[Rfam]
RNA: sok antitoxin (CssrC)
Organism: Escherichia coli
RNA sequence: GGGUGCCUGAAGCUUUCCGGUUUCAGGUUUACUCUGAGGUCUGGAAAGAUGAAGCCCCAGGAGAUAUUUCUAUCAACCCUGGGGCUGCCACUCCAAACCCGAACAAUUUGGAUGGUAGUCCCUUCUUCGCAUGGAGGCAAUAUAAACAUG
Numbered sequence: 001g002g003g004u005g006c007c008u009g010a011a012g013c014u015u016u017c018c019g020g021u022u023u024c025a026g027g028u029u030u031a032c033u034c035u036g037a038g039g040u041c042u043g044g045a046a047a048g049a050u051g052a053a054g055c056c057c058c059a060g061g062a063g064a065u066a067u068u069u070c071u072a073u074c075a076a077c078c079c080u081g082g083g084g085c086u087g088c089c090a091c092u093c094c095a096a097a098c099c100c101g102a103a104c105a106a107u108u109u110g111g112a113u114g115g116u117a118g119u120c121c122c123u124u125c126u127u128c129g130c131a132u133g134g135a136g137g138c139a140a141u142a143u144a145a146a147c148a149u150g
Stems, first nucleotide, its partner, number of pairs: 001058003005055002008053001011050001013048008022039001024038001027035001059080003063074004081122005088115003092111001094110004131143001